[Rfam]
RNA sequence: CAGAUUGUUGUCAAUGAUGAAACAUAGUUAAGCUGAAAUUAAUGAUUUGAUUUCUGUUCCUUCGUCACUACCACUGAGACAACAGAUGG
Number, nucleotide and partner (000 for none) at each position: 001c089002a000003g087004a000005u085006u084007g083008u082009u081010g080011u079012c078013a000014a000015u000016g000017a000018u000019g000020a000021a000022a000023c000024a000025u000026a000027g000028u000029u000030a000031a000032g000033c000034u000035g000036a000037a000038a000039u000040u000041a000042a000043u000044g000045a000046u000047u000048u000049g000050a000051u000052u000053u000054c000055u000056g000057u000058u000059c000060c000061u000062u000063c000064g000065u000066c000067a000068c000069u000070a000071c000072c000073a000074c000075u000076g000077a000078g012079a011080c010081a009082a008083c007084a006085g005086a000087u003088g000089g001
RNA: Small nucleolar RNA SNORD70
Organism: Falco tinnunculus